[Rfam]
RNA sequence: AGGCUAUGAAGCAAUUGGCUGUGUCGGCAUGCAGUCGAUUGUGAAGCCAGACCUUGGGUUAUGCGACAACCUCAAACCGAAUAGUUUCUUCGGAACUGAAAGAAAACGCUUUUA
Number, nucleotide and partner (000 for none) at each position: 001a000002g048003g047004c046005u000006a000007u000008g000009a000010a000011g042012c041013a040014a039015u038016u037017g036018g035019c034020u033021g032022u031023g000024u080025c079026g078027g077028c000029a000030u000031g022032c021033a020034g019035u018036c017037g016038a015039u014040u013041g012042u011043g000044a000045a000046g004047c003048c002049a000050g000051a000052c000053c000054u000055u000056g000057g000058g000059u000060u000061a000062u000063g109064c108065g107066a000067c000068a000069a000070c000071c000072u000073c000074a000075a000076a000077c027078c026079g025080a024081a000082u000083a000084g097085u000086u095087u094088c000089u000090u000091c000092g000093g000094a087095a086096c000097u084098g000099a000100a000101a000102g000103a000104a000105a000106a000107c065108g064109c063110u000111u000112u000113u000114a000
The family of this 114-nucleotide RNA is "drum RNA". Rfam's curators put it in the seed alignment. The base pairs follow the family's consensus structure, which is taken from published work. About the family: Firmicutes, Bacteroidetes (1 example), Proteobacteria (2 examples), Spirochaetes (2 examples).